[Rfam]
RNA sequence: AAUCGUGGGUCGCCUAAUCAAGCCGUCUUAUCGGUAAAGAGCGGAGGAACCAGUUUAUUGGGGCUAAUUGCAAGCCCAAGCUUGCAAGAGACACCUUCCAGUCUUCGCCCGUCAGCUAACUCCGUCGGCAAUGGAAGGAGAACCC
Dot-bracket structure: ...........(((...((...................))((((((....((......))(((.....((((..........))))..((((........))))...))).........)))))).)))................
Numbered sequence: 001a002a003u004c005g006u007g008g009g010u011c012g013c014c015u016a017a018u019c020a021a022g023c024c025g026u027c028u029u030a031u032c033g034g035u036a037a038a039g040a041g042c043g044g045a046g047g048a049a050c051c052a053g054u055u056u057a058u059u060g061g062g063g064c065u066a067a068u069u070g071c072a073a074g075c076c077c078a079a080g081c082u083u084g085c086a087a088g089a090g091a092c093a094c095c096u097u098c099c100a101g102u103c104u105u106c107g108c109c110c111g112u113c114a115g116c117u118a119a120c121u122c123c124g125u126c127g128g129c130a131a132u133g134g135a136a137g138g139a140g141a142a143c144c145c
Stems, first nucleotide, its partner, number of pairs: 012129003018040002041125006051060002061110003069086004089104004

Record summary:
The family of this 145-nucleotide sequence from Leptolyngbyaceae cyanobacterium M33_DOE_097 is "c-di-AMP riboswitch aptamer (ydaO/yuaA leader)". Rfam's curators write: This family represents a conserved RNA structure found upstream of the ydaO and yuaA genes in Bacillus subtilis and related genes in other bacteria. The source organism's lineage runs through Bacteria, Cyanobacteriota, Cyanophyceae, Leptolyngbyales and Leptolyngbyaceae. Its family is annotated with regulation of gene expression and cyclic-di-AMP binding in the Gene Ontology. It scores 66 bits against the family's covariance model.